A member of the RNA family "Y RNA" from Prolemur simus, 97 nucleotides long. The family's RNA type in Rfam is non-coding RNA gene. Rfam describes the family as follows. Y RNAs are components of the Ro ribonucleoprotein particle (Ro RNP), in association with Ro60 and La proteins. The Y RNAs and Ro60 and La proteins are well conserved, but the function of the Ro RNP is not known. In humans the RNA component can be one of four small RNAs -- hY1, hY3, hY4 and hY5. These small RNAs are predicted to fold into a conserved secondary structure containing three stem structures. The base pairs follow the family's consensus structure, which is taken from published work. The match comes from Rfam's covariance-model search (62 bits).

RNA sequence: GGCUGGUCCGAUGGUAGUGGGUUACAGGAACUUACUAACAUUAGUGUCACUAAAGUUGGUAUUCAACCCCUCCCCUGCUAAAUUUGACUGGCUUCUA
Numbered sequence: 001g002g003c004u005g006g007u008c009c010g011a012u013g014g015u016a017g018u019g020g021g022u023u024a025c026a027g028g029a030a031c032u033u034a035c036u037a038a039c040a041u042u043a044g045u046g047u048c049a050c051u052a053a054a055g056u057u058g059g060u061a062u063u064c065a066a067c068c069c070c071u072c073c074c075c076u077g078c079u080a081a082a083u084u085u086g087a088c089u090g091g092c093u094u095c096u097a
Base pairs, nucleotide, nucleotide: 001093002092003091004090005089006088007087008086010085011084015080016076017075019074020073021072033061034060035059037057038056